Rfam assigns this 80-nucleotide RNA sequence from Folsomia candida to the family "mir-981 microRNA precursor family".

[Rfam]
RNA sequence: UCUCGUAUGCUUCGGGUUUCUCGACUUACGAGCUGUACUUUUGACGAGUUCGUUGUCGUUGAAACCUGCAUGAUACAAGA
Numbered sequence: 001u002c003u004c005g006u007a008u009g010c011u012u013c014g015g016g017u018u019u020c021u022c023g024a025c026u027u028a029c030g031a032g033c034u035g036u037a038c039u040u041u042u043g044a045c046g047a048g049u050u051c052g053u054u055g056u057c058g059u060u061g062a063a064a065c066c067u068g069c070a071u072g073a074u075a076c077a078a079g080a
Stems, first nucleotide, its partner, number of pairs: 001080003005076002013068008030051005
Description
Rfam links the family to the GO terms miRNA-mediated post-transcriptional gene silencing and RISC complex. The match comes from Rfam's covariance-model search (62 bits). The base pairs follow the family's consensus structure, which was predicted with RNAalifold. NCBI's taxonomy places the organism under Eukaryota, Panarthropoda, Pancrustacea, Isotomidae, Folsomia. Rfam 15.1 lists 180 matches to the family in 170 species.